The family of this 82-nucleotide sequence from Conyzicola nivalis is "ZMP/ZTP riboswitch aptamer (pfl RNA motif)". A search with the family's covariance model found it, with a score of 53 bits. The source organism's lineage runs through Bacteria, Actinomycetota, Actinomycetes, Microbacteriaceae and Conyzicola.
RNA sequence: UGAGCGGGUCGCAACUGGCGUUGAGAUGGGUAACCAUCAGGGAGCGAGAUACACGAUUCGGCCGUACGCCUGGGCUGAACGG
Dot-bracket structure: ...(.(..((((..(([[[[[....((((....))))..))..))))..).)......(((((..]]]]]..))))).....